[Rfam]
RNA sequence: GGGUGGCAACUAUGAAUUUGAGAUGUUACCUGAUACAAUCUUGCUAGAUCAAAUGCUCUGUAUUUUCCUGCUCGCAGUUUUCAAGUGGAGAUUGUGAGUCUCAAAAAUCUGCAGAUACAA
Numbered sequence: 001g002g003g004u005g006g007c008a009a010c011u012a013u014g015a016a017u018u019u020g021a022g023a024u025g026u027u028a029c030c031u032g033a034u035a036c037a038a039u040c041u042u043g044c045u046a047g048a049u050c051a052a053a054u055g056c057u058c059u060g061u062a063u064u065u066u067c068c069u070g071c072u073c074g075c076a077g078u079u080u081u082c083a084a085g086u087g088g089a090g091a092u093u094g095u096g097a098g099u100c101u102c103a104a105a106a107a108u109c110u111g112c113a114g115a116u117a118c119a120a
Base pairs, nucleotide, nucleotide: 001031002030003029005027006026007025008024010022011021057113059111070099071098072097073096074095075094076093077092079090080089081088